[Rfam]
RNA: TPP riboswitch aptamer (THI element)
RNA sequence: UCCCCGUUCCAGGGGGGCCGCGCCAAAGCGGCUGAGAUAGGGCUGACACGCGCCCUGACCCUUUGAACCUGAUCCGGUUCACACCGGCGGAGGGACGGGACUGGCCACUCAUC
Numbered sequence: 001u002c003c004c005c006g007u008u009c010c011a012g013g014g015g016g017g018c019c020g021c022g023c024c025a026a027a028g029c030g031g032c033u034g035a036g037a038u039a040g041g042g043c044u045g046a047c048a049c050g051c052g053c054c055c056u057g058a059c060c061c062u063u064u065g066a067a068c069c070u071g072a073u074c075c076g077g078u079u080c081a082c083a084c085c086g087g088c089g090g091a092g093g094g095a096c097g098g099g100a101c102u103g104g105c106c107a108c109u110c111a112u113c
Base pairs, nucleotide, nucleotide: 006101007100008099009098010097011062012061013060014059017032018031019030020029021028039056040055041054042053043052068093069092070091074087075086076085077084